RNA: Glycine riboswitch aptamer
RNA sequence: UGAAUCCACGCGGGAGAGUCCCUGCCACCCCUGUGGCGGGCGCCGAAGGAGCAAGUUCCUCCCUUGAAUCUCUCAGGCCCCGUACCGCGUGCGAUGA
Dot-bracket structure: ......(((((((......(((...............))).(((((..(((...(.........)....))))).)))......)))))))......